Notes: The record is an 86-nucleotide RNA sequence from Trichormus azollae, which matches "Photosynthesis regulatory RNA1" in Rfam. Gene Ontology terms of the family: regulation of translation and regulation of photosynthesis. The literature on the family includes a 2014 paper in Plant Cell by Georg et al., "The small regulatory RNA SyR1/PsrR1 controls photosynthetic functions in cyanobacteria". It is annotated as a small RNA. From the family's description: Formerly known as Syr1 discovered in Synechocystis sp PCC 6803, is a regulatory factor controlling photosynthetic functions.

RNA sequence: UUUAAAUCUUUUCAGCUUCGGUAUUGGAAUCUAAUCGUCAUUCUUAUUUCUCCUAAUCAACCUCGGUCAGUUUCACCGGGGUUUUU
Numbered sequence: 001u002u003u004a005a006a007u008c009u010u011u012u013c014a015g016c017u018u019c020g021g022u023a024u025u026g027g028a029a030u031c032u033a034a035u036c037g038u039c040a041u042u043c044u045u046a047u048u049u050c051u052c053c054u055a056a057u058c059a060a061c062c063u064c065g066g067u068c069a070g071u072u073u074c075a076c077c078g079g080g081g082u083u084u085u086u
Stems, first nucleotide, its partner, number of pairs: 060082008